[Rfam]
Shown here is an 83-nucleotide sequence from Ophiophagus hannah, a member of the family "mir-22 microRNA precursor family". A reference for the family is Lagos-Quintana et al. (2001), "Identification of novel genes coding for small expressed RNAs", Science.
RNA sequence: CUACCCGCAGCAGUUCUUCAGUGGCACGCUUUACGUCCCCUCCAGCAACUAAAGCUGCCAGUUGAAGAACUGUUGGCCGUAGC
Number, nucleotide and partner (000 for none) at each position: 001c000002u000003a080004c079005c000006c000007g000008c075009a074010g000011c000012a000013g000014u069015u068016c067017u066018u065019c064020a000021g000022u000023g059024g058025c057026a000027c000028g055029c054030u053031u052032u051033a050034c000035g000036u000037c000038c000039c000040c000041u000042c000043c000044a000045g000046c000047a000048a000049c000050u033051a032052a031053a030054g029055c028056u000057g025058c024059c023060a000061g000062u000063u000064g019065a018066a017067g016068a015069a014070c000071u000072g000073u000074u009075g008076g000077c000078c000079g004080u003081a000082g000083c000
Source information: Pairs were carried over by alignment from the consensus structure, which was predicted with RNAalifold. The sequence is in the family's curated seed alignment.